RNA: c-di-GMP-I riboswitch aptamer
Organism: Mobilisporobacter senegalensis
RNA sequence: AGAAUACAGGGGUAAACUUAUUGAAAGAUAAGGACACAAAGCUACAAGUCUAAGGGUAGUAUAAGCCAAGCCAGGCAUACUGCUUAUGAUGGUUGAGUUGCAUUU
Numbered sequence: 001a002g003a004a005u006a007c008a009g010g011g012g013u014a015a016a017c018u019u020a021u022u023g024a025a026a027g028a029u030a031a032g033g034a035c036a037c038a039a040a041g042c043u044a045c046a047a048g049u050c051u052a053a054g055g056g057u058a059g060u061a062u063a064a065g066c067c068a069a070g071c072c073a074g075g076c077a078u079a080c081u082g083c084u085u086a087u088g089a090u091g092g093u094u095g096a097g098u099u100g101c102a103u104u105u
Base pairs, nucleotide, nucleotide: 012037013036017032018031019030020029021028022027040099041098042097043096045095046094047093048090049089050088055084056083057082058081059080060079061078062077